The record is a 230-nucleotide RNA sequence, which matches "Group II catalytic intron D1-D4-6" in Rfam.
[Rfam]
RNA sequence: AAACACCUAAACUGACGGGGUAAGUAGAAGAUCUACCUGUAAAGUGCCCGAGUCAUGCGCAUGUGGGCGUGAGGCCAUGUGUGAAGCGUUGACAGGGUUGCAAAUAGGCCAAGUAUUGAGCCCCGUAAUAAAACAAUUCCAGGAUGCCGACGCCUUAGGAGGCUGCGGAAGGCCACAACCGGUAGUUCGCUUUGGCAAGAGCUGCUGGUAUCCUGCGGGGUCUAAGACCU
Numbered sequence: 001a002a003a004c005a006c007c008u009a010a011a012c013u014g015a016c017g018g019g020g021u022a023a024g025u026a027g028a029a030g031a032u033c034u035a036c037c038u039g040u041a042a043a044g045u046g047c048c049c050g051a052g053u054c055a056u057g058c059g060c061a062u063g064u065g066g067g068c069g070u071g072a073g074g075c076c077a078u079g080u081g082u083g084a085a086g087c088g089u090u091g092a093c094a095g096g097g098u099u100g101c102a103a104a105u106a107g108g109c110c111a112a113g114u115a116u117u118g119a120g121c122c123c124c125g126u127a128a129u130a131a132a133a134c135a136a137u138u139c140c141a142g143g144a145u146g147c148c149g150a151c152g153c154c155u156u157a158g159g160a161g162g163c164u165g166c167g168g169a170a171g172g173c174c175a176c177a178a179c180c181g182g183u184a185g186u187u188c189g190c191u192u193u194g195g196c197a198a199g200a201g202c203u204g205c206u207g208g209u210a211u212c213c214u215g216c217g218g219g220g221u222c223u224a225a226g227a228c229c230u
Base pairs, nucleotide, nucleotide: 012044013043015040016039017038024036025035026034027033030196046098047097048096049095052093053092054091055090056088057087058083059082060081061080062079063078064077065076066075068073117224118222120221121220122219123218124217125216140215141214142213143212144211145210146173147172148171151167152166153165178209179208180207181206182205183204184203185202186201187200188199